[Rfam]
RNA sequence: CGGGGCAGCCGCUCUCCCUGUCCUCCAGGAGCUCACUUACAUCCGGCGUGAGCUCCUUGGGGCCAGAGCCCGCGUCUGCCUCAGCGCCAGC
Numbered sequence: 001c002g003g004g005g006c007a008g009c010c011g012c013u014c015u016c017c018c019u020g021u022c023c024u025c026c027a028g029g030a031g032c033u034c035a036c037u038u039a040c041a042u043c044c045g046g047c048g049u050g051a052g053c054u055c056c057u058u059g060g061g062g063c064c065a066g067a068g069c070c071c072g073c074g075u076c077u078g079c080c081u082c083a084g085c086g087c088c089a090g091c
Stems, first nucleotide, its partner, number of pairs: 005079004010074003016068001018066003022062001024060002027057003031053006037046002
RNA: mir-339 microRNA precursor family